Histone 3' UTR stem-loop: a 45-nucleotide sequence from Podarcis muralis. The match comes from Rfam's covariance-model search (38 bits). NCBI's taxonomy places the organism under Eukaryota, Craniata, Sauria, Lepidosauria, Podarcis. The base pairs follow the family's consensus structure, which is taken from published work.
RNA sequence: CCAAAGGCUCUUUUAAGAGCCACCCACUUUUCUCAGAAGAGAGCG
Numbered sequence: 001c002c003a004a005a006g007g008c009u010c011u012u013u014u015a016a017g018a019g020c021c022a023c024c025c026a027c028u029u030u031u032c033u034c035a036g037a038a039g040a041g042a043g044c045g
Stems, first nucleotide, its partner, number of pairs: 006021006